[Rfam]
RNA: Group II catalytic intron D1-D4-2
RNA sequence: GAAGGGAGGCCCUUCGCAGCCGGCUUUCAGGAGCAGACUGCAAACCACUCCAAGCUGCUGCGGUCAAGAGCCGCCAGUGGUGAGCGUUGGAGUCAAAGUGUCGAGGCCGUACCUCGAACAGGU
Numbered sequence: 001g002a003a004g005g006g007a008g009g010c011c012c013u014u015c016g017c018a019g020c021c022g023g024c025u026u027u028c029a030g031g032a033g034c035a036g037a038c039u040g041c042a043a044a045c046c047a048c049u050c051c052a053a054g055c056u057g058c059u060g061c062g063g064u065c066a067a068g069a070g071c072c073g074c075c076a077g078u079g080g081u082g083a084g085c086g087u088u089g090g091a092g093u094c095a096a097a098g099u100g101u102c103g104a105g106g107c108c109g110u111a112c113c114u115c116g117a118a119c120a121g122g123u
Base pairs, nucleotide, nucleotide: 001015002014003013004012005011016041017040018039019038021036023034024033025032026031046122048092049091050090051089052088053087054081055080057078058077059076061073062072063071064070100119101117102116103115104114105113